[Rfam]
RNA sequence: GGAACCCCACCGGGUAAGGUAGACCAACCGCCCGUAGUUAGCCUUGGAGCUUGCCCGGCGACGGGUAAGUUUAAGCGUAGGCAAACAAGAUAGCAGGCUGAAAGCUGAAAAGUUGAAGUGAUUAAGCCCCGUAAUCCCAAAUCGGUGAAGGCAGAUGCUCUGGUCUGAAGCAGAAUGCAAAACCGCAGCAGACGCAAAUGGUAAGAAUGCUGCGGCUUCCCCGGGGUCGUUGAACU
Numbered sequence: 001g002g003a004a005c006c007c008c009a010c011c012g013g014g015u016a017a018g019g020u021a022g023a024c025c026a027a028c029c030g031c032c033c034g035u036a037g038u039u040a041g042c043c044u045u046g047g048a049g050c051u052u053g054c055c056c057g058g059c060g061a062c063g064g065g066u067a068a069g070u071u072u073a074a075g076c077g078u079a080g081g082c083a084a085a086c087a088a089g090a091u092a093g094c095a096g097g098c099u100g101a102a103a104g105c106u107g108a109a110a111a112g113u114u115g116a117a118g119u120g121a122u123u124a125a126g127c128c129c130c131g132u133a134a135u136c137c138c139a140a141a142u143c144g145g146u147g148a149a150g151g152c153a154g155a156u157g158c159u160c161u162g163g164u165c166u167g168a169a170g171c172a173g174a175a176u177g178c179a180a181a182a183c184c185g186c187a188g189c190a191g192a193c194g195c196a197a198a199u200g201g202u203a204a205g206a207a208u209g210c211u212g213c214g215g216c217u218u219c220c221c222c223g224g225g226g227u228c229g230u231u232g233a234a235c236u
Base pairs, nucleotide, nucleotide: 011034012033013032014031018029019028020027025201037086038085041082042081043080044079045077046076047072048071049070050069051068052067053066054065055064056063057062126227127226128225129224130223131222145221147219148218149217150216151178152177153176156172157171158170159169183215184214185213186212187211188210189209190208193205